[Rfam]
RNA sequence: UCGUGCUAAGCGGGGAGAUAGCGGUGCCCUGUACUCGCAAUCCGCUCUAGCGAGGCUGAACUCCUCUCGGAGGUUUGUCAUUCGGAGCCUCUAACCCCAGUUGGUCGGCGUUGAUAGUUGGGUCCUGCGCGGCGGAAAGCCGUGAACCCCGUCAGGUCUGGAAGGAAGCAGCGGUAAGUGGUGUCUUCCGGGUGCCGCAGGGUCGCCUGAUUUGAGCCGUCGCUGUGGCUAUGCUCUCGGAUGGGAAUCGAAUUGAGGUGCACGA
Numbered sequence: 001u002c003g004u005g006c007u008a009a010g011c012g013g014g015g016a017g018a019u020a021g022c023g024g025u026g027c028c029c030u031g032u033a034c035u036c037g038c039a040a041u042c043c044g045c046u047c048u049a050g051c052g053a054g055g056c057u058g059a060a061c062u063c064c065u066c067u068c069g070g071a072g073g074u075u076u077g078u079c080a081u082u083c084g085g086a087g088c089c090u091c092u093a094a095c096c097c098c099a100g101u102u103g104g105u106c107g108g109c110g111u112u113g114a115u116a117g118u119u120g121g122g123u124c125c126u127g128c129g130c131g132g133c134g135g136a137a138a139g140c141c142g143u144g145a146a147c148c149c150c151g152u153c154a155g156g157u158c159u160g161g162a163a164g165g166a167a168g169c170a171g172c173g174g175u176a177a178g179u180g181g182u183g184u185c186u187u188c189c190g191g192g193u194g195c196c197g198c199a200g201g202g203u204c205g206c207c208u209g210a211u212u213u214g215a216g217c218c219g220u221c222g223c224u225g226u227g228g229c230u231a232u233g234c235u236c237u238c239g240g241a242u243g244g245g246a247a248u249c250g251a252a253u254u255g256a257g258g259u260g261c262a263c264g265a
Base pairs, nucleotide, nucleotide: 001265002264003263004262005261006260009057010056011055012030013029014028015027017025019023034054035053036052037051038050063258064257065256066255072249073248074247075246076245079243080242081241082240083239084237085236086235087234088233092231093230096228097227100224104221107218108217109216116212117211118210119209120208121207122206123205124201125200126199127198128197129196130192133190134189135188136187137186139182140181141180142179143178149174150173151172152171157166158165159164

Bacterial large signal recognition particle RNA: a 265-nucleotide RNA sequence. Its family is annotated with signal recognition particle, plasma membrane targeting and SRP-dependent cotranslational protein targeting to membrane, signal sequence recognition in the Gene Ontology. Clan: SRP clan.